The record is a 78-nucleotide RNA from Streptomyces taklimakanensis, which matches "nrdJ RNA" in Rfam. NCBI's taxonomy places the organism under Bacteria, Bacillati, Kitasatosporales, Streptomycetaceae, Streptomyces.
RNA sequence: UCCGACCGGAACGCUGUCGCGUUCCGGCCAUCGAUACGGAACACCGCGUCCGGGAAGUACCGGGCGUGUCAGGGCGUU
Dot-bracket structure: ...(.(((((((((....))))))))).)................(((((((.......).))))))...........